Nucleotides: 099
Base pairs, nucleotide, nucleotide: 038090039089040088052080053079054078055077056076057075058074059073
Number, partner (000 for none) and nucleotide at each position: 001000g002000u003000g004000c005000c006000u007000c008000a009000c010000g011000g012000a013000u014000g015000a016000a017000c018000c019000a020000g021000u022000c023000c024000c025000u026000u027000a028000c029000a030000u031000a032000a033000u034000a035000a036000c037000u038090a039089u040088c041000u042000g043000u044000u045000a046000c047000a048000c049000u050000u051000u052080g053079u054078c055077a056076g057075c058074u059073a060000u061000u062000u063000c064000u065000u066000u067000u068000a069000a070000g071000u072000u073059u074058a075057g076056c077055u078054g079053a080052u081000c082000a083000u084000u085000a086000a087000g088040g089039a090038u091000u092000u093000g094000a095000c096000a097000u098000c099000u
This 99-nucleotide RNA sequence from Camphora micrantha belongs to the Rfam family "Small nucleolar RNA snoR99". Taxonomically the source falls in Camphora (Eukaryota, Streptophytina, Embryophyta, Tracheophyta). By type it is an H/ACA-box small nucleolar RNA.